[Rfam]
RNA sequence: CAGUUGAAUCUGAGUAUUGGAUGGAACCAAAUCUUGUUGUGAAAGCGAUGCUAAAGACUUGAUUUCCUCCAAUAUCUCAUGUUCAGCUG
Numbered sequence: 001c002a003g004u005u006g007a008a009u010c011u012g013a014g015u016a017u018u019g020g021a022u023g024g025a026a027c028c029a030a031a032u033c034u035u036g037u038u039g040u041g042a043a044a045g046c047g048a049u050g051c052u053a054a055a056g057a058c059u060u061g062a063u064u065u066c067c068u069c070c071a072a073u074a075u076c077u078c079a080u081g082u083u084c085a086g087c088u089g
Stems, first nucleotide, its partner, number of pairs: 004086005011079004016073006023066004028061003032057002
A member of the RNA family "MIR2275 microRNA precursor family" from Setaria italica, 89 nucleotides long. Its family is annotated with RISC complex and miRNA-mediated post-transcriptional gene silencing in the Gene Ontology. Pairs were carried over by alignment from the consensus structure, which was predicted with RNAalifold.